[Rfam]
RNA: MIR2275 microRNA precursor family
Organism: Paspalum vaginatum
RNA sequence: GCACUCAAAGUGAGAAUUGGAUGGAAACAAAUUGAUUAAUGGCAUUCUGUAAGGAUCCAUGCAUGGGCACAUACAGUUGCUGAUCGGCUUGUUUUCCUCCAAUAUCUCACAUUGAGUAG
Numbered sequence: 001g002c003a004c005u006c007a008a009a010g011u012g013a014g015a016a017u018u019g020g021a022u023g024g025a026a027a028c029a030a031a032u033u034g035a036u037u038a039a040u041g042g043c044a045u046u047c048u049g050u051a052a053g054g055a056u057c058c059a060u061g062c063a064u065g066g067g068c069a070c071a072u073a074c075a076g077u078u079g080c081u082g083a084u085c086g087g088c089u090u091g092u093u094u095u096c097c098u099c100c101a102a103u104a105u106c107u108c109a110c111a112u113u114g115a116g117u118a119g
Stems, first nucleotide, its partner, number of pairs: 004116005011109004016103006023096008032087007